[Rfam]
RNA sequence: AAACCGCACUCUGGAGAGCGGCAGUAGUUCGUCGAUCGAGCAUCGUAUCGGCGUUCAGGCUGCCCACCGAAGGGGCGCGCGCCACGCAGCAACAGCGGCAUCGGCGCAAUCUCUCAGGUACCGAGGACAGAGGGGCCAUG
Numbered sequence: 001a002a003a004c005c006g007c008a009c010u011c012u013g014g015a016g017a018g019c020g021g022c023a024g025u026a027g028u029u030c031g032u033c034g035a036u037c038g039a040g041c042a043u044c045g046u047a048u049c050g051g052c053g054u055u056c057a058g059g060c061u062g063c064c065c066a067c068c069g070a071a072g073g074g075g076c077g078c079g080c081g082c083c084a085c086g087c088a089g090c091a092a093c094a095g096c097g098g099c100a101u102c103g104g105c106g107c108a109a110u111c112u113c114u115c116a117g118g119u120a121c122c123g124a125g126g127a128c129a130g131a132g133g134g135g136c137c138a139u140g
Stems, first nucleotide, its partner, number of pairs: 007134001009132005020064006066119003069115002073113003079107005